[Rfam]
This 123-nucleotide RNA from Salix purpurea belongs to the Rfam family "MIR480 microRNA precursor family". A reference for the family is Lu et al. (2005), "Novel and mechanical stress-responsive MicroRNAs in Populus trichocarpa that are absent from Arabidopsis", Plant Cell. Gene Ontology terms of the family: RISC complex and miRNA-mediated post-transcriptional gene silencing. It scores 38 bits against the family's covariance model.
RNA sequence: UAAUCUAUUUAUGGUAAAUUCUUAUUUAGCUACCGUAAAUACUUAUCCAAAUGCUUAGAAUUUUUAGUUUUCACAAGUCUAAUUAUAUUAGUUUUUAUUUAUUAUUUUGAGAAAGAAUAGAAU
Numbered sequence: 001u002a003a004u005c006u007a008u009u010u011a012u013g014g015u016a017a018a019u020u021c022u023u024a025u026u027u028a029g030c031u032a033c034c035g036u037a038a039a040u041a042c043u044u045a046u047c048c049a050a051a052u053g054c055u056u057a058g059a060a061u062u063u064u065u066a067g068u069u070u071u072c073a074c075a076a077g078u079c080u081a082a083u084u085a086u087a088u089u090a091g092u093u094u095u096u097a098u099u100u101a102u103u104a105u106u107u108u109g110a111g112a113a114a115g116a117a118u119a120g121a122a123u
Stems, first nucleotide, its partner, number of pairs: 004121004008116002012112001015109001018106001025104001027101003031097001